Rfam assigns this 71-nucleotide RNA from Solanum commersonii to the family "Small nucleolar RNA snoR60". For this family Rfam cites "Fibrillarin genes encode both a conserved nucleolar protein and a novel small nucleolar RNA involved in ribosomal RNA methylation in Arabidopsis thaliana" (Barneche et al., J Biol Chem, 2000).
[Rfam]
RNA sequence: AAGCAGAUGAUGAUUUACUCGGAUUCCCCUUCAAGACUUCAUGGAUGAUGUUAAACCGAGUUUCUGAUGCU
Numbered sequence: 001a002a003g004c005a006g007a008u009g010a011u012g013a014u015u016u017a018c019u020c021g022g023a024u025u026c027c028c029c030u031u032c033a034a035g036a037c038u039u040c041a042u043g044g045a046u047g048a049u050g051u052u053a054a055a056c057c058g059a060g061u062u063u064c065u066g067a068u069g070c071u
Base pairs, nucleotide, nucleotide: 002071003070004069005068

The organism belongs to Solanum, within Eukaryota. Gene Ontology terms of the family: RNA processing and nucleolus.